[Rfam]
RNA sequence: GGAUGUGAGGGCGAUCUGGUUGUGACAUCUGUCACCCCAUUGAUCGCCAGGGUUGAUUCGGCUGAUCUGGCUGGCUAGGCGGGUGUCCCCUUCCUCCCUCACCGCUCCAUGUGCGUCCCUCCCGAAGCUGCGCGCUCGGUCGAAGAGGACGACCAUCCCCGAUAGAGGAGGACCGGUCUUCGGUCAAGGGUAUAUGAGUAGCUGCGCUCCCCUGCUAGAACCUCCUAACAAGCUCUCAAGGUCCAUUUGUAGGAGAACGUAGGGUAAAAAAAAAAAAAAAAAAAAGAGUAAUCACUGACUAGUGGUAUAUAAUAUUUUUAUUUUCUUAUUUUU
Number, nucleotide and partner (000 for none) at each position: 001g108002g107003a106004u000005g102006u101007g100008a099009g098010g097011g096012c000013g093014a092015u000016c000017u000018g090019g089020u000021u000022g000023u000024g087025a086026c085027a084028u083029c082030u081031g080032u079033c078034a000035c074036c073037c070038c069039a068040u000041u000042g067043a066044u065045c064046g062047c061048c060049a000050g000051g000052g000053u000054u000055g000056a000057u000058u000059c000060g048061g047062c046063u000064g045065a044066u043067c042068u039069g038070g037071c000072u000073g036074g035075c000076u000077a000078g033079g032080c031081g030082g029083g028084u027085g026086u025087c024088c000089c019090c018091u000092u014093c013094c000095u000096c011097c010098c009099u008100c007101a006102c005103c000104g000105c000106u003107c002108c001109a000110u000111g000112u000113g000114c000115g000116u171117c170118c168119c167120u166121c165122c139123c138124g137125a136126a000127g135128c134129u000130g000131c000132g000133c000134g128135c127136u125137c124138g123139g122140u162141c161142g160143a000144a000145g000146a000147g158148g157149a156150c000151g000152a000153c000154c000155a000156u149157c148158c147159c000160c142161g141162a140163u000164a000165g121166a120167g119168g118169a000170g117171g116172a000173c000174c000175g000176g000177u000178c000179u000180u000181c000182g000183g000184u000185c000186a000187a000188g000189g000190g000191u000192a000193u000194a000195u000196g000197a000198g000199u000200a000201g000202c000203u271204g000205c000206g000207c000208u266209c000210c264211c263212c262213u261214g260215c259216u000217a000218g000219a000220a000221c000222c255223u254224c253225c252226u000227a000228a250229c249230a248231a247232g246233c000234u000235c000236u000237c000238a000239a000240g000241g000242u000243c000244c000245a000246u232247u231248u230249g229250u228251a000252g225253g224254a223255g222256a000257a000258c000259g215260u214261a213262g212263g211264g210265u000266a208267a000268a000269a000270a000271a203272a000273a000274a000275a000276a000277a000278a000279a000280a000281a000282a000283a000284a000285a000286g000287a000288g000289u000290a000291a000292u000293c000294a000295c000296u000297g000298a333299c000300u000301a000302g000303u000304g326305g325306u000307a321308u320309a319310u000311a317312a000313u000314a000315u000316u000317u311318u000319u309320a308321u307322u000323u000324u000325c305326u304327u000328a000329u000330u000331u000332u000333u298